[Rfam]
RNA sequence: CCUUCUUCUUCAAUCACGGACCUGUGCCCAGCCGUCCUCUGCUUGCCGCGCUUUCGGGCCUGCGAGUUCAGAGUCGAUGACUGCGGCAGUUCGAUACAUCCUAUGGAGACAUCGCAUUCUUCUGCCUCGCGGCGGCGGUAUGGUGUCAAGUUCCUAUCGACAGGUCCCAGAGCAAUCGAGUCGUCCUGGAGAGAUGCUGAGUUCGCCGUAACAAGCUGAGCGACGCGGACUAGGAAGGCUCGAGACCGUCAUAUUCCAAGCCGUUUUCCGACGAUCGUCGAUCCAUGAGGUUAGGGGAAAACCAUGACUCUGGUCACAAAU
Dot-bracket structure: .................((((((((((((((.(((((((((.((((.(..((....)))..))).)..)))))..)))).))).))).........(......(((.(.(((...........................))).).)))..........)))))))))...........((...((((((...........((((((........)).))))........))))))...))....((((((((........((.(...((...((((...)))).....))..).)).......)))))...))).......

A member of the RNA family "A. fumigatus sRNA Afu_309" from Sporothrix schenckii, 321 nucleotides long. The literature on the family includes a 2008 paper in Nucleic Acids Res by Jochl et al., "Small ncRNA transcriptome analysis from Aspergillus fumigatus suggests a novel mechanism for regulation of protein synthesis". Lineage of the source: Eukaryota > Opisthokonta > Dikarya > Ophiostomatales > Sporothrix schenckii. A search with the family's covariance model found it, with a score of 130 bits. The family's RNA type in Rfam is small RNA.